[Rfam]
RNA sequence: AGUCCUUGACUGGGGUAGAGUGGUAUCAAGUUGGUGGUGCUCAUCUCAUACCACUCAGAGACAAAAAAAGCCCAUUGUUUAUACCAGCAUGUCUUUUGGUCUAUACCCAUGCCUGAUUCAUGCCUUGGACACAUGG
Dot-bracket structure: .(((.(((....((...(((.((((((........))))))...)))...))...))).))).............((((((.........(.(...(((..((..(....)..))..))).).).)))))).....
The family of this 136-nucleotide RNA sequence from Castor canadensis is "Small nucleolar RNA SNORA48".
The source organism's lineage runs through Eukaryota, Bilateria, Deuterostomia, Sarcopterygii and Castor.
Clan: SNORA48 clan.
On this family, see Ofengand and Bakin, J Mol Biol 1997: "Mapping to nucleotide resolution of pseudouridine residues in large subunit ribosomal RNAs from representative eukaryotes, prokaryotes, archaebacteria, mitochondria and chloroplasts".
Its family is annotated with RNA processing and nucleolus in the Gene Ontology.
Rfam describes the family as follows. The snoRNA ACA 48 has been identified to guide pseudouridylation of the residue U3797 in the 28S rRNA subunit.
The family has 24 seed sequences and 2,109 matches in Rfam 15.1.
The family's consensus secondary structure was predicted with RNAalifold.
The match comes from Rfam's covariance-model search (107 bits).
Rfam classes the family as an H/ACA-box small nucleolar RNA.